[Rfam]
RNA sequence: GAGGGAAGGCCCCUCGCCGACAGGCUCCCGUGUCAGUCGGCAAACUCCCUGAGGCUGCUGCAGCCGCGAGGCUGUGGUGGUGAAAGCGCAGGGUCGAAAAGUGAGUGCUGUGGAG
Numbered sequence: 001g002a003g004g005g006a007a008g009g010c011c012c013c014u015c016g017c018c019g020a021c022a023g024g025c026u027c028c029c030g031u032g033u034c035a036g037u038c039g040g041c042a043a044a045c046u047c048c049c050u051g052a053g054g055c056u057g058c059u060g061c062a063g064c065c066g067c068g069a070g071g072c073u074g075u076g077g078u079g080g081u082g083a084a085a086g087c088g089c090a091g092g093g094u095c096g097a098a099a100a101g102u103g104a105g106u107g108c109u110g111u112g113g114a115g
Stems, first nucleotide, its partner, number of pairs: 001015005016041006023034003048092004053087001054081002057078003061074004106115001
Dot-bracket structure: (((((.....)))))((((((.(((......))).))))))......((((.(((.(((.((((......)))).))).)).....).)))).............(........)
Shown here is a 115-nucleotide RNA sequence from Dyella sp. M7H15-1, a member of the family "Group II catalytic intron D1-D4-2". Rfam's curators write: Group II introns are found in rRNA, tRNA and mRNA of organelles in fungi, plants and protists, and also in mRNA in bacteria. Rfam links the family to the GO term Group II intron splicing. A reference for the family is Bonen and Vogel (2001), "The ins and outs of group II introns", Trends Genet.